The record is a 95-nucleotide sequence, which matches "PhotoRC-II RNA" in Rfam.
RNA sequence: UCACCAUUUUUGCACCCGUUAACCGAGACCUAUGGGUGGGUAAAUUACGUCUCUCAUAUCCUGUAGUGAAGGGAUUACAGGAAAUAUAGUAUCGC
Numbered sequence: 001u002c003a004c005c006a007u008u009u010u011u012g013c014a015c016c017c018g019u020u021a022a023c024c025g026a027g028a029c030c031u032a033u034g035g036g037u038g039g040g041u042a043a044a045u046u047a048c049g050u051c052u053c054u055c056a057u058a059u060c061c062u063g064u065a066g067u068g069a070a071g072g073g074a075u076u077a078c079a080g081g082a083a084a085u086a087u088a089g090u091a092u093c094g095c
Stems, first nucleotide, its partner, number of pairs: 013038007025053005060081007
Rfam's curators put it in the seed alignment.